[Rfam]
Overview:
The record is an 87-nucleotide sequence, which matches "GA-cis RNA" in Rfam. Rfam classes the family as a small RNA.
RNA sequence: UUGAGGAGAAACCAAUACGACGAAGUCGUAUUUUAAGAUGGUUUCGACGACCUGCCAACCAGCGAAGGCGAGGGGGCGUUACAGAAU
Number, nucleotide and partner (000 for none) at each position: 001u000002u000003g000004a000005g000006g000007a000008g045009a044010a043011a042012c041013c040014a000015a031016u030017a029018c028019g027020a026021c000022g000023a000024a000025g000026u020027c019028g018029u017030a016031u015032u000033u000034u000035a000036a000037g000038a000039u000040g013041g012042u011043u010044u009045c008046g000047a000048c000049g000050a000051c000052c000053u000054g077055c076056c075057a000058a000059c072060c000061a000062g069063c068064g000065a000066a000067g000068g063069c062070g000071a000072g059073g000074g000075g056076g055077c054078g000079u000080u000081a000082c000083a000084g000085a000086a000087u000